This 126-nucleotide RNA from Nannospalax galili belongs to the Rfam family "Small nucleolar RNA SNORA40". About the family: The snoRNA ACA 40 belongs to the H/ACA family of snoRNAs and guides the pseudouridylation of 28S rRNA subunit at position U4565. NB This family has a high threshold value to exclude a large number of closely related sequences that do not appear to have conserved H and ACA boxes, and may be pseudogenes.
RNA sequence: CACAUUUGUUCGUGCUUCUGUUUAACUUAUGGACAAAGACUUAUAGAGUGGUGCCAAAAAAAUUCUUCUUCACAAGCCCAAACUCAAUGUUUAGUGUGAAUUUUGAUAUGUGUUAGAAGGAAUAUU
Dot-bracket structure: (((..((.(..((..((.(((....(....).))).))))....).))..)))........(((((..((.(.....(.(((.(((..........))).))).).......).))..)))))...

The match comes from Rfam's covariance-model search (67 bits).